Shown here is an 81-nucleotide RNA sequence from Ensifer meliloti, a member of the family "chrB-a RNA". Rfam classes the family as a cis-regulatory element. The organism belongs to Ensifer meliloti, within Bacteria. The sequence is in the family's curated seed alignment. The base pairs follow the family's consensus structure, which is taken from published work.
Nucleotides: 081
Stems, first nucleotide, its partner, number of pairs: 005024006047072006
Number, partner (000 for none) and nucleotide at each position: 001000g002000c003000c004000a005024u006023g007022g008021g009020g010019u011000a012000a013000g014000c015000g016000a017000a018000u019010g020009c021008c022007u023006c024005a025000c026000g027000a028000g029000g030000c031000g032000c033000c034000a035000u036000g037000c038000c039000g040000g041000a042000a043000u044000u045000u046000c047072g048071c049070g050069u051068c052067c053000g054000c055000u056000a057000a058000c059000g060000a061000u062000c063000u064000a065000a066000a067052g068051g069050a070049c071048g072047u073000c074000g075000u076000a077000u078000c079000a080000u081000g